RNA sequence: AAAAGUUUCAAGUUGGUCCCUUAUCUUUAUUUUAGGUUUCAAGUUCGUCCCUUCAGUCAAUUUUUUAACUAUUUCCGUUAAACUUGGACACGUGUCAUCUGUCCAAGUGUGCCACGUGUCCAAAUUAGUUUACCACGUGUCCAAAUUUAACGGAAAUAGUUAAAAAAUUGACGGAAGGGACCAACUUGAAACCUAAAAUAAAGAUAAGGGACCAACUUGAAACUUUUAAAAGAUAAGGGA
Numbered sequence: 001a002a003a004a005g006u007u008u009c010a011a012g013u014u015g016g017u018c019c020c021u022u023a024u025c026u027u028u029a030u031u032u033u034a035g036g037u038u039u040c041a042a043g044u045u046c047g048u049c050c051c052u053u054c055a056g057u058c059a060a061u062u063u064u065u066u067a068a069c070u071a072u073u074u075c076c077g078u079u080a081a082a083c084u085u086g087g088a089c090a091c092g093u094g095u096c097a098u099c100u101g102u103c104c105a106a107g108u109g110u111g112c113c114a115c116g117u118g119u120c121c122a123a124a125u126u127a128g129u130u131u132a133c134c135a136c137g138u139g140u141c142c143a144a145a146u147u148u149a150a151c152g153g154a155a156a157u158a159g160u161u162a163a164a165a166a167a168u169u170g171a172c173g174g175a176a177g178g179g180a181c182c183a184a185c186u187u188g189a190a191a192c193c194u195a196a197a198a199u200a201a202a203g204a205u206a207a208g209g210g211a212c213c214a215a216c217u218u219g220a221a222a223c224u225u226u227u228a229a230a231a232g233a234u235a236a237g238g239g240a
Base pairs, nucleotide, nucleotide: 011217012216013215015213016212017211019209020208021207022206023205024204025203026202027201028200029199030198031197033195034194035193
Rfam assigns this 240-nucleotide sequence from Trifolium subterraneum to the family "MIR2655 microRNA precursor family". A search with the family's covariance model found it, with a score of 123 bits. Gene Ontology terms of the family: RISC complex and miRNA-mediated post-transcriptional gene silencing.